[Rfam]
A member of the RNA family "MIR168 microRNA precursor family" from Kingdonia uniflora, 111 nucleotides long. The family's consensus secondary structure was predicted with WAR. It scores 84 bits against the family's covariance model. A reference for the family is Lu et al. (2005), "Novel and mechanical stress-responsive MicroRNAs in Populus trichocarpa that are absent from Arabidopsis", Plant Cell.
RNA sequence: UUCAUUGGUGUUUCUGAUUCGCUUGGUGCAGGUCGGGAGCUAUUCGCUCUUUUAGCGAGUGAGCGAAUCAGAUCCCGUUUUGCAUCAACUGAAUUGGAAAUCACAGUGAUU
Numbered sequence: 001u002u003c004a005u006u007g008g009u010g011u012u013u014c015u016g017a018u019u020c021g022c023u024u025g026g027u028g029c030a031g032g033u034c035g036g037g038a039g040c041u042a043u044u045c046g047c048u049c050u051u052u053u054a055g056c057g058a059g060u061g062a063g064c065g066a067a068u069c070a071g072a073u074c075c076c077g078u079u080u081u082g083c084a085u086c087a088a089c090u091g092a093a094u095u096g097g098a099a100a101u102c103a104c105a106g107u108g109a110u111u
Stems, first nucleotide, its partner, number of pairs: 013098002017094004023088010034077005040071002